[Rfam]
RNA sequence: AAUAUUACCCUAACACCAGGCACUAACUUGAUUUUGGUACACAGUAAGUGCUAUUUGUUGGGGAAGUUUUG
Numbered sequence: 001a002a003u004a005u006u007a008c009c010c011u012a013a014c015a016c017c018a019g020g021c022a023c024u025a026a027c028u029u030g031a032u033u034u035u036g037g038u039a040c041a042c043a044g045u046a047a048g049u050g051c052u053a054u055u056u057g058u059u060g061g062g063g064a065a066g067u068u069u070u071g
Base pairs, nucleotide, nucleotide: 004067005066006065008063009062010061011060013058014057015056018054019052020051021050022049023048024047026045027044028043
Shown here is a 71-nucleotide sequence from Nothobranchius furzeri, a member of the family "miR-430 microRNA precursor family". The source organism's lineage runs through Eukaryota, Actinopterygii, Neoteleostei, Percomorphaceae and Nothobranchius. The family has 32 seed sequences and 24,817 matches in Rfam 15.1. The family's consensus secondary structure was predicted with RNAalifold. Rfam links the family to the GO terms RISC complex and miRNA-mediated post-transcriptional gene silencing. It scores 59 bits against the family's covariance model.